[Rfam]
RNA sequence: GUGGGCGGAAGCUCAUUGUAGAGGUCACAUGCAGAGUGCUCGUCACUCGACCAAUCACCUCGGGGAAGGUCUGAGACAAGAGCCAAUCGCUGCCCUCGCAGGGCAUCAUCCGACGUGGAUGAGCGAGCGAACAGAAAUCACGGGCCCGUGAGCGGCUGCGCAGGAGAAGUCACGUGACCUGAUACCGUCACCGGCGGAUGCGACGCUCACCGGCUUGGAAUCACUCGCGGCUGGCGAAUGAGUGCGAUGGAUGAGGUGGAGCACGGCUCCAGAACCCAAUUCAGACUACUCUCCACCCAC
Numbered sequence: 001g002u003g004g005g006c007g008g009a010a011g012c013u014c015a016u017u018g019u020a021g022a023g024g025u026c027a028c029a030u031g032c033a034g035a036g037u038g039c040u041c042g043u044c045a046c047u048c049g050a051c052c053a054a055u056c057a058c059c060u061c062g063g064g065g066a067a068g069g070u071c072u073g074a075g076a077c078a079a080g081a082g083c084c085a086a087u088c089g090c091u092g093c094c095c096u097c098g099c100a101g102g103g104c105a106u107c108a109u110c111c112g113a114c115g116u117g118g119a120u121g122a123g124c125g126a127g128c129g130a131a132c133a134g135a136a137a138u139c140a141c142g143g144g145c146c147c148g149u150g151a152g153c154g155g156c157u158g159c160g161c162a163g164g165a166g167a168a169g170u171c172a173c174g175u176g177a178c179c180u181g182a183u184a185c186c187g188u189c190a191c192c193g194g195c196g197g198a199u200g201c202g203a204c205g206c207u208c209a210c211c212g213g214c215u216u217g218g219a220a221u222c223a224c225u226c227g228c229g230g231c232u233g234g235c236g237a238a239u240g241a242g243u244g245c246g247a248u249g250g251a252u253g254a255g256g257u258g259g260a261g262c263a264c265g266g267c268u269c270c271a272g273a274a275c276c277c278a279a280u281u282c283a284g285a286c287u288a289c290u291c292u293c294c295a296c297c298c299a300c
Base pairs, nucleotide, nucleotide: 001300002299003298004297007294008293009292012255013254014253015252016251017250021061022060023059024058034048035047036046037045038044071284072283073282074281075280081232082231083230084229091105092104093103094102095101106122107121108120109119110118111117123228124227125226126225127224129222144214145213146212257271258270259269260268261267262266